The family of this 85-nucleotide sequence from Paenibacillus sp. CAA11 is "c-di-GMP-I riboswitch aptamer".
The source organism's lineage runs through Bacteria, Bacillota, Bacilli, Caryophanales and Paenibacillus.
The match comes from Rfam's covariance-model search (71 bits).

RNA sequence: CCAGAGAAAAGGUAAACCUGCUGAAAGGCAGGGGCACAAAGUCACAGGUCUAAGGUAGCGAUACUAGGAUGGCUGGACUGCCUGG
Numbered sequence: 001c002c003a004g005a006g007a008a009a010a011g012g013u014a015a016a017c018c019u020g021c022u023g024a025a026a027g028g029c030a031g032g033g034g035c036a037c038a039a040a041g042u043c044a045c046a047g048g049u050c051u052a053a054g055g056u057a058g059c060g061a062u063a064c065u066a067g068g069a070u071g072g073c074u075g076g077a078c079u080g081c082c083u084g085g
Stems, first nucleotide, its partner, number of pairs: 012037002017032006040079004045075003048070003055064003